[Rfam]
RNA sequence: GCCGGUGUGGCGGAAUGGUAGACGCACUCGACUCAAAAUCGAGCGGGAAACCGUAGGGGUUCAAGUCCCCUCACCGGCA
Numbered sequence: 001g002c003c004g005g006u007g008u009g010g011c012g013g014a015a016u017g018g019u020a021g022a023c024g025c026a027c028u029c030g031a032c033u034c035a036a037a038a039u040c041g042a043g044c045g046g047g048a049a050a051c052c053g054u055a056g057g058g059g060u061u062c063a064a065g066u067c068c069c070c071u072c073a074c075c076g077g078c079a
Stems, first nucleotide, its partner, number of pairs: 001078007010025003027043005055071005